[Rfam]
Record summary:
The record is a 140-nucleotide RNA from Felis catus, which matches "Small Cajal body specific RNA 21" in Rfam. Rfam links the family to the GO terms Cajal body, nucleolus and RNA processing. The family's RNA type in Rfam is small Cajal body RNA. About the family: scaRNAs are a specific class of small nuclear RNAs which localise to the Cajal bodies and guide the modification of RNA polymerase II transcribed spliceosomal RNAs U1, U2, U4, U5 and U12. ACA68 (SCARNA21) is a member of the H/ACA class of snoRNAs that guide the sites of modification of uridines to pseudouridines. This snoRNA was identified by computational screening and its expression in mouse experimentally verified by Northern blot and primer extension analysis. The family's consensus secondary structure was predicted with RNAalifold. The sequence is in the family's curated seed alignment.

RNA sequence: CGGCUUGGUUUCCUGGGGCGUGGACUCAGCCUGCCCACCUCCCCUCAGCCGAGCCUAGAGCAGAGAGGCCUGGCUUCCUCCCCCACAGGGCAGGUGGUUGAGACAGGAACCUGGCCCCGGGCUGGCCUCGCCUCACAUUU
Numbered sequence: 001c002g003g004c005u006u007g008g009u010u011u012c013c014u015g016g017g018g019c020g021u022g023g024a025c026u027c028a029g030c031c032u033g034c035c036c037a038c039c040u041c042c043c044c045u046c047a048g049c050c051g052a053g054c055c056u057a058g059a060g061c062a063g064a065g066a067g068g069c070c071u072g073g074c075u076u077c078c079u080c081c082c083c084c085a086c087a088g089g090g091c092a093g094g095u096g097g098u099u100g101a102g103a104c105a106g107g108a109a110c111c112u113g114g115c116c117c118c119g120g121g122c123u124g125g126c127c128u129c130g131c132c133u134c135a136c137a138u139u140u
Stems, first nucleotide, its partner, number of pairs: 002055006015043004020038004065134005072127002077121003086113004